[Rfam]
RNA sequence: AAUUGUUGAGGGCGGAACAGGCAGCCGCCACGCCUUUUUAUAAGGUCUUAAAAGAGAUGCAGAUUGCCACCUGCCAAUAAUU
Numbered sequence: 001a002a003u004u005g006u007u008g009a010g011g012g013c014g015g016a017a018c019a020g021g022c023a024g025c026c027g028c029c030a031c032g033c034c035u036u037u038u039u040a041u042a043a044g045g046u047c048u049u050a051a052a053a054g055a056g057a058u059g060c061a062g063a064u065u066g067c068c069a070c071c072u073g074c075c076a077a078u079a080a081u082u
Base pairs, nucleotide, nucleotide: 001082002081003080004079005078006077007076008075011029012028013027014026015025020068021067022066023065031054032046033045034044035043059074060073061072062071